[Rfam]
RNA sequence: UCCUCUCUAUUAAUGGCACUGGUAGAAUUCACGGGGUCUAUUGAACAUCCGUGGUCUCCCGGUCGCCAUACAUAGAGAGGG
Numbered sequence: 001u002c003c004u005c006u007c008u009a010u011u012a013a014u015g016g017c018a019c020u021g022g023u024a025g026a027a028u029u030c031a032c033g034g035g036g037u038c039u040a041u042u043g044a045a046c047a048u049c050c051g052u053g054g055u056c057u058c059c060c061g062g063u064c065g066c067c068a069u070a071c072a073u074a075g076a077g078a079g080g081g
Stems, first nucleotide, its partner, number of pairs: 003079008013069005018063001020061003025056002029054006
RNA: mir-263 microRNA precursor family